[Rfam]
RNA sequence: GUAAAAGGAACUUCUGCUAAAGGCGUGCACGUCCUGUGCACAACGCAGAAGUCACCGCGUCCU
Numbered sequence: 001g002u003a004a005a006a007g008g009a010a011c012u013u014c015u016g017c018u019a020a021a022g023g024c025g026u027g028c029a030c031g032u033c034c035u036g037u038g039c040a041c042a043a044c045g046c047a048g049a050a051g052u053c054a055c056c057g058c059g060u061c062c063u
Stems, first nucleotide, its partner, number of pairs: 011051007026040005
Dot-bracket structure: ..........(((((((........(((((.....)))))....)))))))............